[Rfam]
RNA sequence: UGGAUAAAUUAUUGUAUACGACUGUAUUUGACUGUAUUCACGGCGUGAAACAGGAGAUUACAUUGUUUUUAACCGGAAAGUGAAUUAAUUAUCAUAAUAGACUCCU
Number, nucleotide and partner (000 for none) at each position: 001u000002g105003g104004a103005u000006a000007a000008a000009u100010u099011a098012u097013u096014g095015u094016a000017u000018a000019c000020g000021a000022c000023u000024g000025u000026a000027u000028u091029u000030g090031a089032c000033u087034g086035u000036a085037u084038u083039c082040a081041c080042g000043g000044c075045g074046u000047g069048a068049a067050a066051c065052a064053g063054g000055a000056g000057a000058u000059u000060a000061c000062a000063u053064u052065g051066u050067u049068u048069u047070u000071a000072a000073c000074c045075g044076g000077a000078a000079a000080g041081u040082g039083a038084a037085u036086u034087a033088a000089u031090u030091a028092u000093c000094a015095u014096a013097a012098u011099a010100g009101a000102c000103u004104c003105c002106u000

The family of this 106-nucleotide sequence from Nicotiana attenuata is "MIR6152 microRNA precursor family". Pairs were carried over by alignment from the consensus structure, which was predicted with RNAalifold. The match comes from Rfam's covariance-model search (68 bits). Its family is annotated with miRNA-mediated post-transcriptional gene silencing and RISC complex in the Gene Ontology. The organism belongs to Nicotiana, within Eukaryota.